RNA sequence: GCUGCUUGCAAGGUACCUAAUUGUUUGAAAUUCAUUCUCAAUUGGUCCCCUCCAAGUAGCUC
Dot-bracket structure: ((((((((...((.(((.(((((...............)))))))).))...))))))))..
mir-245 microRNA precursor family: a 62-nucleotide sequence from Caenorhabditis brenneri. The family has 4 seed sequences and 10 matches in Rfam 15.1. The source organism's lineage runs through Eukaryota, Metazoa, Rhabditida, Rhabditoidea and Caenorhabditis.